[Rfam]
Selenocysteine insertion sequence 1: a 64-nucleotide RNA sequence from Ameiurus melas. Taxonomically the source falls in Ameiurus (Eukaryota, Bilateria, Craniata, Otomorpha). It scores 40 bits against the family's covariance model. By type it is a cis-regulatory element.

RNA sequence: GUCGGUUAAUGAGGACCUGCCCUAAAAGCCCUUGUUGGAGAGGGCGGGUCUGAUGUGCCCCGGC
Numbered sequence: 001g002u003c004g005g006u007u008a009a010u011g012a013g014g015a016c017c018u019g020c021c022c023u024a025a026a027a028g029c030c031c032u033u034g035u036u037g038g039a040g041a042g043g044g045c046g047g048g049u050c051u052g053a054u055g056u057g058c059c060c061c062g063g064c
Stems, first nucleotide, its partner, number of pairs: 001064005014050010029038002